[Rfam]
Bacterial RNase P class A: a 371-nucleotide sequence from Silanimonas sp. Pairs were carried over by alignment from the consensus structure, which is taken from published work. Its Rfam clan is "RNaseP clan".
RNA sequence: GGAGGUGGCCAGGCAGUCGCGUCGAGGGGCAACCCUCGCCGAGGAAAGUCCGGGCUCCACAGGGCAGGGUGCCAGGUAACGCCUGGGCGGCGCGAGCCGACGGAAAGUGCAACAGAAAGCAAACCGCCGAACGGCCCGCAAGGGUGCGUGGUAAGGGUGAAACGGUGGGGUAAGAGCCCACCGCCUGCGGGGCCAACGUCGCAGGGCACGGCAAACCCCACCCGGAGCAAGGCCAAAUAGGGGUGCAUUGGGCUGGCCCGGCCCGCACCCGGGUAGGCUGCUGGAGCCCCGCCGCGAGGCGGGGCCGAGAGGAAUGGCUGCCACCGGCCGCAAGGUCGGCACAGAACCCGGCUUAACGGCCACCUCCGUCU
Numbered sequence: 001g002g003a004g005g006u007g008g009c010c011a012g013g014c015a016g017u018c019g020c021g022u023c024g025a026g027g028g029g030c031a032a033c034c035c036u037c038g039c040c041g042a043g044g045a046a047a048g049u050c051c052g053g054g055c056u057c058c059a060c061a062g063g064g065c066a067g068g069g070u071g072c073c074a075g076g077u078a079a080c081g082c083c084u085g086g087g088c089g090g091c092g093c094g095a096g097c098c099g100a101c102g103g104a105a106a107g108u109g110c111a112a113c114a115g116a117a118a119g120c121a122a123a124c125c126g127c128c129g130a131a132c133g134g135c136c137c138g139c140a141a142g143g144g145u146g147c148g149u150g151g152u153a154a155g156g157g158u159g160a161a162a163c164g165g166u167g168g169g170g171u172a173a174g175a176g177c178c179c180a181c182c183g184c185c186u187g188c189g190g191g192g193c194c195a196a197c198g199u200c201g202c203a204g205g206g207c208a209c210g211g212c213a214a215a216c217c218c219c220a221c222c223c224g225g226a227g228c229a230a231g232g233c234c235a236a237a238u239a240g241g242g243g244u245g246c247a248u249u250g251g252g253c254u255g256g257c258c259c260g261g262c263c264c265g266c267a268c269c270c271g272g273g274u275a276g277g278c279u280g281c282u283g284g285a286g287c288c289c290c291g292c293c294g295c296g297a298g299g300c301g302g303g304g305c306c307g308a309g310a311g312g313a314a315u316g317g318c319u320g321c322c323a324c325c326g327g328c329c330g331c332a333a334g335g336u337c338g339g340c341a342c343a344g345a346a347c348c349c350g351g352c353u354u355a356a357c358g359g360c361c362a363c364c365u366c367c368g369u370c371u
Stems, first nucleotide, its partner, number of pairs: 001367010012322007020041002023038006046354003050351005055227004062259004067223005072086005087101001088099004102218002107216002109212002124156002126152003132148002134145004164182006183207001184205005189199001191197001231279004241270006250264005286305008